[Rfam]
RNA sequence: AAAGAUCGAUACCGAGGGGGGCGCGACGCCCCGGAGAAUUUCCUGCUUUGUCAGGCAGUCUUACCGCGUACAGUCUGAAACUCCCUAAACCUCAACAGACUGCCACUCCGGCGUGAAGGUAUCGUUCU
Numbered sequence: 001a002a003a004g005a006u007c008g009a010u011a012c013c014g015a016g017g018g019g020g021g022c023g024c025g026a027c028g029c030c031c032c033g034g035a036g037a038a039u040u041u042c043c044u045g046c047u048u049u050g051u052c053a054g055g056c057a058g059u060c061u062u063a064c065c066g067c068g069u070a071c072a073g074u075c076u077g078a079a080a081c082u083c084c085c086u087a088a089a090c091c092u093c094a095a096c097a098g099a100c101u102g103c104c105a106c107u108c109c110g111g112c113g114u115g116a117a118g119g120u121a122u123c124g125u126u127c128u
Stems, first nucleotide, its partner, number of pairs: 002128001004126002007124007018032006033084004042055004056077003062070003
Dot-bracket structure: .(.((.(((((((....((((((...))))))((((.....((((......))))(((...(((...)))....)))...)))).................................))))))))).)

The record is a 128-nucleotide RNA sequence from Escherichia albertii, which matches "EFASI RNA" in Rfam. Rfam classes the family as a small RNA. The base pairs follow the family's consensus structure, which is taken from published work. The sequence is in the family's curated seed alignment.